[Rfam]
Rfam assigns this 67-nucleotide RNA sequence from Lepisosteus oculatus to the family "Small nucleolar RNA SNORD73". Pairs were carried over by alignment from the consensus structure, which was predicted with PFOLD. Rfam 15.1 lists 769 matches to the family in 586 species. On this family, see Rebane et al., Gene 1998: "A novel snoRNA (U73) is encoded within the introns of the human and mouse ribosomal protein S3a genes". It scores 52 bits against the family's covariance model.

RNA sequence: AACAUAUGAUGACAACGUUUCGGUCCCAAAUGAGCAUCGGUGAUUAUCGUUGAGAUCCCCUGAUGUU
Numbered sequence: 001a002a003c004a005u006a007u008g009a010u011g012a013c014a015a016c017g018u019u020u021c022g023g024u025c026c027c028a029a030a031u032g033a034g035c036a037u038c039g040g041u042g043a044u045u046a047u048c049g050u051u052g053a054g055a056u057c058c059c060c061u062g063a064u065g066u067u
Stems, first nucleotide, its partner, number of pairs: 001067004